[Rfam]
RNA sequence: GCGUUGCGGCAGUCGCUGGUCAUUUGACUAGAGGAAAGUCCAUGCUCGCACGAUCUGUGAUGAUCGUAGUGUUUGUGCUGGAUGAAACAAUAAAUCCAGGCAGUGUAAUUACUGACGGCUGAAGGAAACCUAAGGGAAACUAUGGUGUACUUCUUUAAAAGUGCCACAGAGACGAGCUUUUAUGGAAACAUAAAAGAUGGAACGGGUAAACCCCGCAAGCGAGAAACCCAAAUUUGGUAGGGGAACCUGCUGGAGGUGAAGUGAAAUCAUCCGGUGGGGCGUUUGAAAAAACGCAGAUAAAUGACUGCCACUCCAUUGGAGUACAGAACAUGGCUUAUGCAA
Numbered sequence: 001g002c003g004u005u006g007c008g009g010c011a012g013u014c015g016c017u018g019g020u021c022a023u024u025u026g027a028c029u030a031g032a033g034g035a036a037a038g039u040c041c042a043u044g045c046u047c048g049c050a051c052g053a054u055c056u057g058u059g060a061u062g063a064u065c066g067u068a069g070u071g072u073u074u075g076u077g078c079u080g081g082a083u084g085a086a087a088c089a090a091u092a093a094a095u096c097c098a099g100g101c102a103g104u105g106u107a108a109u110u111a112c113u114g115a116c117g118g119c120u121g122a123a124g125g126a127a128a129c130c131u132a133a134g135g136g137a138a139a140c141u142a143u144g145g146u147g148u149a150c151u152u153c154u155u156u157a158a159a160a161g162u163g164c165c166a167c168a169g170a171g172a173c174g175a176g177c178u179u180u181u182a183u184g185g186a187a188a189c190a191u192a193a194a195a196g197a198u199g200g201a202a203c204g205g206g207u208a209a210a211c212c213c214c215g216c217a218a219g220c221g222a223g224a225a226a227c228c229c230a231a232a233u234u235u236g237g238u239a240g241g242g243g244a245a246c247c248u249g250c251u252g253g254a255g256g257u258g259a260a261g262u263g264a265a266a267u268c269a270u271c272c273g274g275u276g277g278g279g280c281g282u283u284u285g286a287a288a289a290a291a292c293g294c295a296g297a298u299a300a301a302u303g304a305c306u307g308c309c310a311c312u313c314c315a316u317u318g319g320a321g322u323a324c325a326g327a328a329c330a331u332g333g334c335u336u337a338u339g340c341a342a
Stems, first nucleotide, its partner, number of pairs: 004342003008309007016031006036336003040333005045223005050067006073218005078099006100116001101114005117213002121153003128146003134141002161211002163207003177196008227242003246278007279294006311321004